The record is a 110-nucleotide sequence from Kineococcus aurantiacus, which matches "SAM (S-adenosyl methionine) riboswitch aptamer" in Rfam. The base pairs follow the family's consensus structure, which is taken from published work. SAM-IV is a mRNA element that regulates gene expression via direct sensing of S-adenosylmethionine (SAM or AdoMet).
[Rfam]
RNA sequence: GGUCACGAGUCCCAGCGACGAGCCCCGGCUUGCUGGGCGGCAACCCUCCUCGUCGUGGGGUGCCCCGGGUGAUGACCUGACCUGCGCCGGCGCGCGGGUAAGGACGAGCA
Numbered sequence: 001g002g003u004c005a006c007g008a009g010u011c012c013c014a015g016c017g018a019c020g021a022g023c024c025c026c027g028g029c030u031u032g033c034u035g036g037g038c039g040g041c042a043a044c045c046c047u048c049c050u051c052g053u054c055g056u057g058g059g060g061u062g063c064c065c066c067g068g069g070u071g072a073u074g075a076c077c078u079g080a081c082c083u084g085c086g087c088c089g090g091c092g093c094g095c096g097g098g099u100a101a102g103g104a105c106g107a108g109c110a
Stems, first nucleotide, its partner, number of pairs: 001077004009038001011037006021030002039064003044060003048055001080099008

Rfam links the family to the GO terms regulation of gene expression and S-adenosylmethionine metabolic process. The match comes from Rfam's covariance-model search (92 bits). Clan: SAM clan. Rfam 15.1 lists 2,360 matches to the family in 1,305 species.